[Rfam]
RNA sequence: UGCCCCGGAUACGGCGUAAAACUGUGACCGCCAAAGGGAAGCGACCCCGUAAAAAGCGUA
Numbered sequence: 001u002g003c004c005c006c007g008g009a010u011a012c013g014g015c016g017u018a019a020a021a022c023u024g025u026g027a028c029c030g031c032c033a034a035a036g037g038g039a040a041g042c043g044a045c046c047c048c049g050u051a052a053a054a055a056g057c058g059u060a
Base pairs, nucleotide, nucleotide: 001016002015003014004013009025010024011023036048037047038046